Annotation: Rfam assigns this 161-nucleotide RNA sequence from Gossypium gossypioides to the family "MIR530 microRNA precursor family". NCBI's taxonomy places the organism under Eukaryota, Viridiplantae, Gunneridae, Malvales, Gossypium. The match comes from Rfam's covariance-model search (88 bits). Its family is annotated with RISC complex and miRNA-mediated post-transcriptional gene silencing in the Gene Ontology.

RNA sequence: GCUAAGAUGUAGCUUUUAUCUGCAUUUGCACCUGCACCUUAUUGUUUGUUUCAGCUAUGUCAGAAAAACAAAACACUGUACUGUUAGAUAUGUUUUGUGUGGUGUGGUUGGAGACCAAACAAAGAGGUGCAGAUGCAGUUGCAGGUGAAUGCCAUUUUAGC
Numbered sequence: 001g002c003u004a005a006g007a008u009g010u011a012g013c014u015u016u017u018a019u020c021u022g023c024a025u026u027u028g029c030a031c032c033u034g035c036a037c038c039u040u041a042u043u044g045u046u047u048g049u050u051u052c053a054g055c056u057a058u059g060u061c062a063g064a065a066a067a068a069c070a071a072a073a074c075a076c077u078g079u080a081c082u083g084u085u086a087g088a089u090a091u092g093u094u095u096u097g098u099g100u101g102g103u104g105u106g107g108u109u110g111g112a113g114a115c116c117a118a119a120c121a122a123a124g125a126g127g128u129g130c131a132g133a134u135g136c137a138g139u140u141g142c143a144g145g146u147g148a149a150u151g152c153c154a155u156u157u158u159a160g161c
Base pairs, nucleotide, nucleotide: 001161002160003159004158005157006156007155008154009153012152013151015149016148017147018146019145020144021143022142023141024140026138027137028136029135030134032132033131034130035129036128037127038126039125